[Rfam]
RNA sequence: AAAAUCGGAAUAGCGCCUGGGCAUUUAUAUGCUGACGAGGAGGACAGUUAUCGACAAUCGGCGGAUGCUGUCCCGGAUACUAAAGUAUUCGUUAUAUUAUCUGUAAAACUAAAGAGUAAUCUUUAGGACAAAAGGAUAAUCAAUUACUAAA
Numbered sequence: 001a002a003a004a005u006c007g008g009a010a011u012a013g014c015g016c017c018u019g020g021g022c023a024u025u026u027a028u029a030u031g032c033u034g035a036c037g038a039g040g041a042g043g044a045c046a047g048u049u050a051u052c053g054a055c056a057a058u059c060g061g062c063g064g065a066u067g068c069u070g071u072c073c074c075g076g077a078u079a080c081u082a083a084a085g086u087a088u089u090c091g092u093u094a095u096a097u098u099a100u101c102u103g104u105a106a107a108a109c110u111a112a113a114g115a116g117u118a119a120u121c122u123u124u125a126g127g128a129c130a131a132a133a134g135g136a137u138a139a140u141c142a143a144u145u146a147c148u149a150a151a
Stems, first nucleotide, its partner, number of pairs: 020033005042073005051061004074091006096140006109126007
RNA: glmS glucosamine-6-phosphate activated ribozyme aptamer
Organism: Aliicoccus persicus